[Rfam]
RNA sequence: CGAUGAUCUCAGGGCGGGGUGCAAUUCCCCACCGGCGGUAAGCGGUUUGCUUGGACGGUUCCUUUCGAACCAUCAGGUCGCCGCAAGCCCGCGAGCGCCCUGCGAGGAUCGCCGGCUUCCGCCGUGCGACGCCGCGCAGGGGUCAGCAGACCCGGUGCAAUUCCGGGGCCGACGGUCACAGUCCGGAUGGAAGAGAUCGGUU
Numbered sequence: 001c002g003a004u005g006a007u008c009u010c011a012g013g014g015c016g017g018g019g020u021g022c023a024a025u026u027c028c029c030c031a032c033c034g035g036c037g038g039u040a041a042g043c044g045g046u047u048u049g050c051u052u053g054g055a056c057g058g059u060u061c062c063u064u065u066c067g068a069a070c071c072a073u074c075a076g077g078u079c080g081c082c083g084c085a086a087g088c089c090c091g092c093g094a095g096c097g098c099c100c101u102g103c104g105a106g107g108a109u110c111g112c113c114g115g116c117u118u119c120c121g122c123c124g125u126g127c128g129a130c131g132c133c134g135c136g137c138a139g140g141g142g143u144c145a146g147c148a149g150a151c152c153c154g155g156u157g158c159a160a161u162u163c164c165g166g167g168g169c170c171g172a173c174g175g176u177c178a179c180a181g182u183c184c185g186g187a188u189g190g191a192a193g194a195g196a197u198c199g200g201u202u
Stems, first nucleotide, its partner, number of pairs: 004199007017029003031182002033171002035092004095147002151167005173185003

Overview: The family of this 202-nucleotide sequence from Camelimonas lactis is "FMN riboswitch aptamer (RFN element)". The match comes from Rfam's covariance-model search (97 bits). Its family is annotated with FMN binding in the Gene Ontology.